[Rfam]
RNA sequence: UUGCCCUACGGAAUGCUCGGGUCCGCCGCAUCUCCUGGGCCCGUGGGGUUGGUCGGCGGGCGAUGGCUGCGGAAGGCCUCUCCGCUUAUCGUCCGCCGAUUCCAUU
Numbered sequence: 001u002u003g004c005c006c007u008a009c010g011g012a013a014u015g016c017u018c019g020g021g022u023c024c025g026c027c028g029c030a031u032c033u034c035c036u037g038g039g040c041c042c043g044u045g046g047g048g049u050u051g052g053u054c055g056g057c058g059g060g061c062g063a064u065g066g067c068u069g070c071g072g073a074a075g076g077c078c079u080c081u082c083c084g085c086u087u088a089u090c091g092u093c094c095g096c097c098g099a100u101u102c103c104a105u106u
Stems, first nucleotide, its partner, number of pairs: 003049008016039006051101011
The record is a 106-nucleotide sequence from Ancylobacter sp. TS-1, which matches "EcpR1" in Rfam.
The base pairs follow the family's consensus structure, which was predicted with WAR.
A search with the family's covariance model found it, with a score of 85 bits.
From the family's description: Perviously named SmelC291, SmrC10, or Sra33.